[Rfam]
Notes: This 118-nucleotide sequence from Nyctibius bracteatus belongs to the Rfam family "Small nucleolar RNA SNORA61". About the family: ACA61 is a member of the H/ACA class of snoRNA that guide the sites of modification of uridines to pseudouridines. The base pairs follow the family's consensus structure, which was predicted with PFOLD. The match comes from Rfam's covariance-model search (82 bits). The organism belongs to Nyctibius, within Eukaryota. Rfam classes the family as an H/ACA-box small nucleolar RNA. Rfam links the family to the GO terms nucleolus and RNA processing.
RNA sequence: UCCCUCCAGAUCCCUUUCCCAUCAGAUCUGAAUACCGAUCUUGUGGUCGAAAAAGGAGGAAAAAUAACAUUCAAACUGGUCUCGGCCUCGUUGCUGCUGCAGUCCUGCUCCGAGAGGG
Numbered sequence: 001u002c003c004c005u006c007c008a009g010a011u012c013c014c015u016u017u018c019c020c021a022u023c024a025g026a027u028c029u030g031a032a033u034a035c036c037g038a039u040c041u042u043g044u045g046g047u048c049g050a051a052a053a054a055g056g057a058g059g060a061a062a063a064a065u066a067a068c069a070u071u072c073a074a075a076c077u078g079g080u081c082u083c084g085g086c087c088u089c090g091u092u093g094c095u096g097c098u099g100c101a102g103u104c105c106u107g108c109u110c111c112g113a114g115a116g117g118g
Stems, first nucleotide, its partner, number of pairs: 003059005019046003023043001025040004076107001078105002081102002